[Rfam]
RNA sequence: AUGAGGAUAGCGUGAGAUAUCUUUAAAGAUAGCCGAAGAAGCAAUGUGGAAAAAGCCAAAUUUUCACAGAAACUUUCAGGCAAAAGGAUCGUUAUCUGAUG
Numbered sequence: 001a002u003g004a005g006g007a008u009a010g011c012g013u014g015a016g017a018u019a020u021c022u023u024u025a026a027a028g029a030u031a032g033c034c035g036a037a038g039a040a041g042c043a044a045u046g047u048g049g050a051a052a053a054a055g056c057c058a059a060a061u062u063u064u065c066a067c068a069g070a071a072a073c074u075u076u077c078a079g080g081c082a083a084a085a086g087g088a089u090c091g092u093u094a095u096c097u098g099a100u101g
Base pairs, nucleotide, nucleotide: 006096007095008094009093010092011091012090019030020029021028022027032081033080034079035077036076039075040074041073045068046067047066048065049064050063051062052061
RNA: Glycine riboswitch aptamer
Organism: Anaeromicrobium sediminis